[Rfam]
Nucleotides: 035
Base pairs, nucleotide, nucleotide: 001035002034003033005032006031007030008029010028012027013026014025015024016023
Number, partner (000 for none) and nucleotide at each position: 001035c002034u003033g004000a005032c006031u007030c008029c009000u010028g011000c012027u013026u014025c015024a016023a017000c018000a019000g020000u021000a022000u023016u024015u025014g026013g027012a028010u029008g030007g031006a032005g033003c034002a035001g